[Rfam]
RNA sequence: UGGAGGACUGAGAAGGUAAGACAGGCGAACUUUAUGCUGUAUCUUACUGGUUAUAACCUCCAAAAUUAUAAUGGUGCAAUGCAACUCAUGUUCCCCUCCUGACAUGAGGGAAAGCUAUACUGCAUUUG
Numbered sequence: 001u002g003g004a005g006g007a008c009u010g011a012g013a014a015g016g017u018a019a020g021a022c023a024g025g026c027g028a029a030c031u032u033u034a035u036g037c038u039g040u041a042u043c044u045u046a047c048u049g050g051u052u053a054u055a056a057c058c059u060c061c062a063a064a065a066u067u068a069u070a071a072u073g074g075u076g077c078a079a080u081g082c083a084a085c086u087c088a089u090g091u092u093c094c095c096c097u098c099c100u101g102a103c104a105u106g107a108g109g110g111a112a113a114g115c116u117a118u119a120c121u122g123c124a125u126u127u128g
Stems, first nucleotide, its partner, number of pairs: 002061005015048004019042001021040004081120001091112005097107002
Rfam assigns this 128-nucleotide RNA from Halcyon senegalensis to the family "Small nucleolar RNA SNORA47". Its family is annotated with nucleolus and RNA processing in the Gene Ontology. For this family Rfam cites "RNomics: an experimental approach that identifies 201 candidates for novel, small, non-messenger RNAs in mouse" (Huttenhofer et al., EMBO J, 2001). Pairs were carried over by alignment from the consensus structure, which was predicted with WAR.